[Rfam]
The record is a 469-nucleotide sequence from Pirellulimonas nuda, which matches "Bacterial RNase P class A" in Rfam. Rfam describes the family as follows. Ribonuclease P (RNase P) is a ubiquitous endoribonuclease, found in archaea, bacteria and eukarya as well as chloroplasts and mitochondria. A search with the family's covariance model found it, with a score of 297 bits. Taxonomically the source falls in Pirellulimonas (Bacteria, Pseudomonadati, Planctomycetota, Lacipirellulaceae).

RNA sequence: CGAGAGGGCCGGGCAGCCGCCGGUCGGACGCGGUGCGUCCGGCGGGAGGAAAGUCCGGGCGCCGCAGGGCAGGGUGGUGGGUAACUCCCACCGGCCGCAAGGCCAGGGCAAGUGCAACAGAAAGCAAACCGCCUGCGGGGGUGUUAGGUUUUAGUCGUUAGGUCUUAGGACGGACGUGUUUGAGCGAUUCUCUGCUGGUCUUUCCCAACGCCUAGUACCUAAGACCUAACACCUCCGCAGGUAAGGGUGAAACGGUGCGGUAAGAGCGCACCAGCGGUCGGGGCGACCCGAUCGGCUAGGUAAACCCCACCCGGCGCAAGGCCAAACAGGGAGCACGAGCCGGCUCGGCUCGCUACGACUCCCGGGUAGGCUGCUUGAGGCGGUGGGCAACCACCGUCCUAGAGGAAUGGCUGCCGCCGCCUCCUUCGGGAAGCGGACACAAAACCCGGCUUACAGGCCCUCUCGAAGG
Numbered sequence: 001c002g003a004g005a006g007g008g009c010c011g012g013g014c015a016g017c018c019g020c021c022g023g024u025c026g027g028a029c030g031c032g033g034u035g036c037g038u039c040c041g042g043c044g045g046g047a048g049g050a051a052a053g054u055c056c057g058g059g060c061g062c063c064g065c066a067g068g069g070c071a072g073g074g075u076g077g078u079g080g081g082u083a084a085c086u087c088c089c090a091c092c093g094g095c096c097g098c099a100a101g102g103c104c105a106g107g108g109c110a111a112g113u114g115c116a117a118c119a120g121a122a123a124g125c126a127a128a129c130c131g132c133c134u135g136c137g138g139g140g141g142u143g144u145u146a147g148g149u150u151u152u153a154g155u156c157g158u159u160a161g162g163u164c165u166u167a168g169g170a171c172g173g174a175c176g177u178g179u180u181u182g183a184g185c186g187a188u189u190c191u192c193u194g195c196u197g198g199u200c201u202u203u204c205c206c207a208a209c210g211c212c213u214a215g216u217a218c219c220u221a222a223g224a225c226c227u228a229a230c231a232c233c234u235c236c237g238c239a240g241g242u243a244a245g246g247g248u249g250a251a252a253c254g255g256u257g258c259g260g261u262a263a264g265a266g267c268g269c270a271c272c273a274g275c276g277g278u279c280g281g282g283g284c285g286a287c288c289c290g291a292u293c294g295g296c297u298a299g300g301u302a303a304a305c306c307c308c309a310c311c312c313g314g315c316g317c318a319a320g321g322c323c324a325a326a327c328a329g330g331g332a333g334c335a336c337g338a339g340c341c342g343g344c345u346c347g348g349c350u351c352g353c354u355a356c357g358a359c360u361c362c363c364g365g366g367u368a369g370g371c372u373g374c375u376u377g378a379g380g381c382g383g384u385g386g387g388c389a390a391c392c393a394c395c396g397u398c399c400u401a402g403a404g405g406a407a408u409g410g411c412u413g414c415c416g417c418c419g420c421c422u423c424c425u426u427c428g429g430g431a432a433g434c435g436g437a438c439a440c441a442a443a444a445c446c447c448g449g450c451u452u453a454c455a456g457g458c459c460c461u462c463u464c465g466a467a468g469g
Stems, first nucleotide, its partner, number of pairs: 001465010011454001012415007020046002023043006051452003055449005060316004067346004072312005077091005092106001093104004107307002112305002114301002129246002131242024254272006274296001275294008320372004329363005337351005379398008